A member of the RNA family "CRISPR RNA direct repeat element" from Frankia nepalensis, 37 nucleotides long. Lineage of the source: Bacteria > Bacillati > Actinomycetes > Frankiales > Frankia. Rfam links the family to the GO term defense response. A search with the family's covariance model found it, with a score of 46 bits.
RNA sequence: GCGGCACCGGGGAUCCGUCCCCGGUGAGGCUCCCAAC
Dot-bracket structure: ....(((((((((....)))))))))...........